[Rfam]
RNA sequence: AUCAAGCCUCCGGUCCUACUCCAUUUUUAUAGGGCCGGGAGAGCCGUCAAAAAGGAGGAAAAAACCGCCGGCCGGCGGUGCGGCAGUGUGGAGACCUGUCGUAAAGUCCGUGGGGUAGCCACUCCCCGCGGGUGAGAGGGCGGUUGCGGAGGUAGCGUCCUUACGGCCAAGCAUUAUGGCA
Numbered sequence: 001a002u003c004a005a006g007c008c009u010c011c012g013g014u015c016c017u018a019c020u021c022c023a024u025u026u027u028u029a030u031a032g033g034g035c036c037g038g039g040a041g042a043g044c045c046g047u048c049a050a051a052a053a054g055g056a057g058g059a060a061a062a063a064a065c066c067g068c069c070g071g072c073c074g075g076c077g078g079u080g081c082g083g084c085a086g087u088g089u090g091g092a093g094a095c096c097u098g099u100c101g102u103a104a105a106g107u108c109c110g111u112g113g114g115g116u117a118g119c120c121a122c123u124c125c126c127c128g129c130g131g132g133u134g135a136g137a138g139g140g141c142g143g144u145u146g147c148g149g150a151g152g153u154a155g156c157g158u159c160c161u162u163a164c165g166g167c168c169a170a171g172c173a174u175u176a177u178g179g180c181a
Base pairs, nucleotide, nucleotide: 007041009039010038011037012036013035014034015033016032017031018030065078066077067076068075070168071167072166073165074164079103080102081101082100083099084098085097086096088095089094106133107132108131109130110129111128112127113126114125136162137161138160139159140158141157142156145154146153147152
Notes:
malK-I RNA: a 181-nucleotide RNA sequence from Flavonifractor sp. An306. A search with the family's covariance model found it, with a score of 134 bits.